[Rfam]
RNA: Small nucleolar RNA SNORA30/SNORA37 family
Organism: Rhinolophus ferrumequinum
RNA sequence: UUAGCACUUUCACAGGUCCUCUCCCAGGCAAUGGGGCCAGGAUUUGGUAGCUGAUGCUGAAAGAAAACCCUUGAUUGCAUACUUGCCCUGGGGCUGUGCCAGUGGCACUUUCACUUAAUGGGACAGAG
Numbered sequence: 001u002u003a004g005c006a007c008u009u010u011c012a013c014a015g016g017u018c019c020u021c022u023c024c025c026a027g028g029c030a031a032u033g034g035g036g037c038c039a040g041g042a043u044u045u046g047g048u049a050g051c052u053g054a055u056g057c058u059g060a061a062a063g064a065a066a067a068c069c070c071u072u073g074a075u076u077g078c079a080u081a082c083u084u085g086c087c088c089u090g091g092g093g094c095u096g097u098g099c100c101a102g103u104g105g106c107a108c109u110u111u112c113a114c115u116u117a118a119u120g121g122g123a124c125a126g127a128g
Stems, first nucleotide, its partner, number of pairs: 003058004008053001013046003017042004022036004068122003071118004076113002079111001084107004088102004